[Rfam]
RNA: Ribosomal protein L20 leader
Organism: Desulforamulus hydrothermalis
Nucleotides: 130
Stems, first nucleotide, its partner, number of pairs: 011026006028052003033047002036043002097117009
Number, partner (000 for none) and nucleotide at each position: 001000u002000u003000g004000a005000u006000g007000a008000a009000g010000a011026a012025g013024a014023a015022g016021c017000a018000g019000c020000c021016g022015c023014u024013u025012c026011u027000c028052a029051c030050c031000u032000u033047a034046c035000a036043a037042c038000c039000a040000u041000g042037g043036u044000u045000c046034g047033u048000a049000a050030g051029g052028u053000u054000a055000c056000g057000g058000u059000g060000u061000u062000a063000u064000a065000c066000a067000a068000u069000a070000a071000g072000u073000g074000u075000u076000g077000c078000u079000u080000g081000u082000u083000g084000u085000a086000u087000u088000g089000c090000g091000u092000c093000u094000g095000u096000a097117a098116g099115c100114g101113g102112g103111u104110g105109u106000a107000u108000u109105g110104c111103a112102c113101c114100c115099g116098c117097u118000u119000u120000u121000a122000u123000a124000u125000u126000u127000g128000g129000u130000u